[Rfam]
RNA sequence: GGGUGCUUGAGACUUUCUGUUUCAGGCAUACACGAAGCAGAAAGAGAAAAGCCCCGAGCUGAUAAAUCAACCCGAGGCCCCUCGUAUGCUAGACACGUACAGGUUAGCCUCUUACAACGUCGAAAUCAAUAUCCGGCUAUG
Numbered sequence: 001g002g003g004u005g006c007u008u009g010a011g012a013c014u015u016u017c018u019g020u021u022u023c024a025g026g027c028a029u030a031c032a033c034g035a036a037g038c039a040g041a042a043a044g045a046g047a048a049a050a051g052c053c054c055c056g057a058g059c060u061g062a063u064a065a066a067u068c069a070a071c072c073c074g075a076g077g078c079c080c081c082u083c084g085u086a087u088g089c090u091a092g093a094c095a096c097g098u099a100c101a102g103g104u105u106a107g108c109c110u111c112u113u114a115c116a117a118c119g120u121c122g123a124a125a126u127c128a129a130u131a132u133c134c135g136g137c138u139a140u141g
Stems, first nucleotide, its partner, number of pairs: 001055003005052004013044011026031001056073001058071001074111005081103002084100005115141002119137004
The record is a 141-nucleotide RNA sequence from Erwinia sp. OLSSP12, which matches "sok antitoxin (CssrC)" in Rfam. Rfam 15.1 lists 305 matches to the family in 167 species. Also identified in Shigella as CssrC. The literature on the family includes a 2007 paper in Mol Microbiol by Kawano et al., "An antisense RNA controls synthesis of an SOS-induced toxin evolved from an antitoxin".